[Rfam]
Potassium channel RNA editing signal: a 114-nucleotide RNA from Trichinella spiralis. By type it is a cis-regulatory element. The source organism's lineage runs through Eukaryota, Opisthokonta, Eumetazoa, Bilateria and Trichinella. The base pairs follow the family's consensus structure, which is taken from published work. A search with the family's covariance model found it, with a score of 82 bits. This family represents a group of sequences related to the human potassium channel Kv1.1 hairpin element which directs the efficient modification of an adenosine to inosine by an adenosine deaminase acting on RNA (ADAR).
RNA sequence: GUUGGAUACGGCGAUUUGGUCCCAGUUGCGCCAGCAGGAAAAUUUGUCGGUUCCUUGUGCGCAAUUGUUGGUGUUCUUGUACUUGCCUUACCGGUGCCGGUGAUUGUCGCCAAU
Numbered sequence: 001g002u003u004g005g006a007u008a009c010g011g012c013g014a015u016u017u018g019g020u021c022c023c024a025g026u027u028g029c030g031c032c033a034g035c036a037g038g039a040a041a042a043u044u045u046g047u048c049g050g051u052u053c054c055u056u057g058u059g060c061g062c063a064a065u066u067g068u069u070g071g072u073g074u075u076c077u078u079g080u081a082c083u084u085g086c087c088u089u090a091c092c093g094g095u096g097c098c099g100g101u102g103a104u105u106g107u108c109g110c111c112a113a114u
Base pairs, nucleotide, nucleotide: 001114002113004111005110008107009106010105011104014101015100016099018097021094037077038076039075040074050062051061